[Rfam]
RNA: Small nucleolar RNA R12
Organism: Apostasia shenzhenica
RNA sequence: AUGCUGGAUGAUGAAUAAGUCAGAUGGAUUCCCAUUGAUCAUUAUGAAGUGAUAUUGUUAACCAACUACUUCUAACGCAU
Numbered sequence: 001a002u003g004c005u006g007g008a009u010g011a012u013g014a015a016u017a018a019g020u021c022a023g024a025u026g027g028a029u030u031c032c033c034a035u036u037g038a039u040c041a042u043u044a045u046g047a048a049g050u051g052a053u054a055u056u057g058u059u060a061a062c063c064a065a066c067u068a069c070u071u072c073u074a075a076c077g078c079a080u
Stems, first nucleotide, its partner, number of pairs: 001080004006076001